The family of this 71-nucleotide sequence from Actinoalloteichus spitiensis is "L31-Actinobacteria ribosomal protein leader". Taxonomically the source falls in Actinoalloteichus spitiensis (Bacteria, Bacillati, Actinomycetes, Pseudonocardiales).

RNA sequence: ACGGCUCCGGUUCACCCCCUCGCCCGGCCCCGGUAGCACCGGGCUGGCCAGGCAGGGCGGACCCGGCGGCC
Numbered sequence: 001a002c003g004g005c006u007c008c009g010g011u012u013c014a015c016c017c018c019c020u021c022g023c024c025c026g027g028c029c030c031c032g033g034u035a036g037c038a039c040c041g042g043g044c045u046g047g048c049c050a051g052g053c054a055g056g057g058c059g060g061a062c063c064c065g066g067c068g069g070c071c
Base pairs, nucleotide, nucleotide: 003071004070005069007066008065009064010063015060016059017057018056019055020054022053023052024051